[Rfam]
RNA sequence: AAAAAGACAAACCCUGGGUUUCCGUGCCAACGUUUCACUGUCCGUUUUAUAUGAAAUUUUUUUAUAAUUAGUAUUUUUAUUAUUGUUAGAUGAUAAAACAUGAUUAAUACUUUAUAUGUGACUUAUCUUUUUAAUUUUUUUCAAAAUUUUUUCAAAUAAGACAGACGGUCAAAACGUUGGACAUGAAAAUU
Numbered sequence: 001a002a003a004a005a006g007a008c009a010a011a012c013c014c015u016g017g018g019u020u021u022c023c024g025u026g027c028c029a030a031c032g033u034u035u036c037a038c039u040g041u042c043c044g045u046u047u048u049a050u051a052u053g054a055a056a057u058u059u060u061u062u063u064a065u066a067a068u069u070a071g072u073a074u075u076u077u078u079a080u081u082a083u084u085g086u087u088a089g090a091u092g093a094u095a096a097a098a099c100a101u102g103a104u105u106a107a108u109a110c111u112u113u114a115u116a117u118g119u120g121a122c123u124u125a126u127c128u129u130u131u132u133a134a135u136u137u138u139u140u141u142c143a144a145a146a147u148u149u150u151u152u153c154a155a156a157u158a159a160g161a162c163a164g165a166c167g168g169u170c171a172a173a174a175c176g177u178u179g180g181a182c183a184u185g186a187a188a189a190u191u
Base pairs, nucleotide, nucleotide: 027180028179029178030177031176033173034172035171037169038168039167040166041165042164044162045161046160047159048158049157050156